[Rfam]
RNA sequence: GAAAAGUGGAGACCAGAAACCACUAUAAAAAACGGGGCGAUUCCGAAAAGCCAUACGAGUAGGGACAACU
Numbered sequence: 001g002a003a004a005a006g007u008g009g010a011g012a013c014c015a016g017a018a019a020c021c022a023c024u025a026u027a028a029a030a031a032a033c034g035g036g037g038c039g040a041u042u043c044c045g046a047a048a049a050g051c052c053a054u055a056c057g058a059g060u061a062g063g064g065a066c067a068a069c070u
Stems, first nucleotide, its partner, number of pairs: 006023004036052003043064002